The family of this 183-nucleotide sequence from Gloeobacter morelensis is "permuted transfer-messenger RNA". Rfam classes the family as a non-coding RNA gene.

[Rfam]
RNA sequence: GGGUGCGCGAUCGGCUGCUCUGGACAGGGGUUCGAUUCCCCUCAUCUCCACCACCUCGGGGAUGCACUGGCUUCGACAGGGCAAUUAGAGCGUAACUGAAGCCUGCUCGGUCAGAGCAAAAAACCAAGUGCUACUAACAACGUAGUUCCCUUCGCUCGCGCCCGCGCCACUGUCGCGGCCUGA
Numbered sequence: 001g002g003g004u005g006c007g008c009g010a011u012c013g014g015c016u017g018c019u020c021u022g023g024a025c026a027g028g029g030g031u032u033c034g035a036u037u038c039c040c041c042u043c044a045u046c047u048c049c050a051c052c053a054c055c056u057c058g059g060g061g062a063u064g065c066a067c068u069g070g071c072u073u074c075g076a077c078a079g080g081g082c083a084a085u086u087a088g089a090g091c092g093u094a095a096c097u098g099a100a101g102c103c104u105g106c107u108c109g110g111u112c113a114g115a116g117c118a119a120a121a122a123a124c125c126a127a128g129u130g131c132u133a134c135u136a137a138c139a140a141c142g143u144a145g146u147u148c149c150c151u152u153c154g155c156u157c158g159c160g161c162c163c164g165c166g167c168c169a170c171u172g173u174c175g176c177g178g179c180c181u182g183a
Base pairs, nucleotide, nucleotide: 001097002096004094005093016083017082018081020079021078022077026042027041028040029039030038043064044063045062046061047060048059049058
Bacterial tmRNA, also known as 10Sa RNA or SsrA, is named for its dual tRNA and mRNA-like properties. The base pairs follow the family's consensus structure, which is taken from published work. NCBI's taxonomy places the organism under Bacteria, Cyanophyceae, Gloeobacterales, Gloeobacteraceae, Gloeobacter morelensis.